[Rfam]
Shown here is an 82-nucleotide sequence, a member of the family "S10-Clostridia ribosomal protein leader".
For this family Rfam cites "Discovery of 20 novel ribosomal leader candidates in bacteria and archaea" (Eckert and Weinberg, BMC Microbiol, 2020).
RNA sequence: UGAUAGCAAUGAAGCGCGAGGUUGCCGUCGAGAAUGACGGGUUUUCCGUGGAGCGAAUGUCAAGUUAGGAAACUGGCGACAA
Numbered sequence: 001u002g003a004u005a006g007c008a009a010u011g012a013a014g015c016g017c018g019a020g021g022u023u024g025c026c027g028u029c030g031a032g033a034a035u036g037a038c039g040g041g042u043u044u045u046c047c048g049u050g051g052a053g054c055g056a057a058u059g060u061c062a063a064g065u066u067a068g069g070a071a072a073c074u075g076g077c078g079a080c081a082a
Stems, first nucleotide, its partner, number of pairs: 014049003018046004025040005058081004064077004
The sequence is in the family's curated seed alignment. By type it is a cis-regulatory leader.